[Rfam]
RNA: Plastid-psbA-4 3UTR RNA
RNA sequence: GAAAGUAAAGGGGCACUAACCAAUUGUUUGUUAAAACAAAGAGUUGGUAUUGCUCCUUUACU
Numbered sequence: 001g002a003a004a005g006u007a008a009a010g011g012g013g014c015a016c017u018a019a020c021c022a023a024u025u026g027u028u029u030g031u032u033a034a035a036a037c038a039a040a041g042a043g044u045u046g047g048u049a050u051u052g053c054u055c056c057u058u059u060a061c062u
Base pairs, nucleotide, nucleotide: 007059008058009057010056011055012054013053014052015051017049018048022044025041027040028039029038030037